[Rfam]
RNA: Plastid-psbA-3 3UTR RNA
RNA sequence: AAAAGAGCAAUAACACCCUCUUGAUAAAACAAGAGGUAACCUAUUGCUCCCCUUUUU
Numbered sequence: 001a002a003a004a005g006a007g008c009a010a011u012a013a014c015a016c017c018c019u020c021u022u023g024a025u026a027a028a029a030c031a032a033g034a035g036g037u038a039a040c041c042u043a044u045u046g047c048u049c050c051c052c053u054u055u056u057u
Base pairs, nucleotide, nucleotide: 001053005049006048007047008046009045010044011043012042018035019034020033021032022031023030